Annotation:
Rfam assigns this 137-nucleotide RNA sequence from Methyloligella halotolerans to the family "Alphaproteobacterial sRNA BjrC1505". NCBI's taxonomy places the organism under Bacteria, Pseudomonadati, Pseudomonadota, Hyphomicrobiales, Methyloligella.
RNA sequence: GUUAGCAUUAACGAAUCCUUAGGACAUUACGCUUAAUGUUCCCCUUAUCCAGUCCUCUGGAUCGGAGUGGCCCCAACCACUCUGUUUGACGCCUCCCUGUUAACUUCCUGAGCCGCCCACCGGGCGGCUCUUUUUUU
Numbered sequence: 001g002u003u004a005g006c007a008u009u010a011a012c013g014a015a016u017c018c019u020u021a022g023g024a025c026a027u028u029a030c031g032c033u034u035a036a037u038g039u040u041c042c043c044c045u046u047a048u049c050c051a052g053u054c055c056u057c058u059g060g061a062u063c064g065g066a067g068u069g070g071c072c073c074c075a076a077c078c079a080c081u082c083u084g085u086u087u088g089a090c091g092c093c094u095c096c097c098u099g100u101u102a103a104c105u106u107c108c109u110g111a112g113c114c115g116c117c118c119a120c121c122g123g124g125c126g127g128c129u130c131u132u133u134u135u136u137u
Stems, first nucleotide, its partner, number of pairs: 001043001004040001006013001015037002020035004048061004065082006088101004110130009

For this family Rfam cites "Small RNAs of the Bradyrhizobium/Rhodopseudomonas lineage and their analysis" (Madhugiri et al., RNA Biol, 2012). A search with the family's covariance model found it, with a score of 82 bits.